[Rfam]
RNA sequence: GUGUCCGAGGAGCGUUGCAAGGCCGGUCGAUUCAGACGACCGCCCCAGGCUCGGACCCCUUCCCACAGGCAACGGCGCUCACCCGUC
Numbered sequence: 001g002u003g004u005c006c007g008a009g010g011a012g013c014g015u016u017g018c019a020a021g022g023c024c025g026g027u028c029g030a031u032u033c034a035g036a037c038g039a040c041c042g043c044c045c046c047a048g049g050c051u052c053g054g055a056c057c058c059c060u061u062c063c064c065a066c067a068g069g070c071a072a073c074g075g076c077g078c079u080c081a082c083c084c085g086u087c
Stems, first nucleotide, its partner, number of pairs: 003056006021044003025040001
This 87-nucleotide RNA sequence from Sphaerotilus sulfidivorans belongs to the Rfam family "SAH (S-adenosyl-L-homocysteine) riboswitch aptamer".
On this family, see Wang et al., Mol Cell 2008: "Riboswitches that sense S-adenosylhomocysteine and activate genes involved in coenzyme recycling".